RNA: nadA riboswitch
RNA sequence: GGUUGCAACAUCCCCGUGGGCUGGGCCGAAGGGCAGCGAGUCCACUGCAGCC
Numbered sequence: 001g002g003u004u005g006c007a008a009c010a011u012c013c014c015c016g017u018g019g020g021c022u023g024g025g026c027c028g029a030a031g032g033g034c035a036g037c038g039a040g041u042c043c044a045c046u047g048c049a050g051c052c
Stems, first nucleotide, its partner, number of pairs: 001052007013038001014036001016045007023037001025034003
Dot-bracket structure: (((((((.....[[.((((((((.(((....))).])]))))))))))))))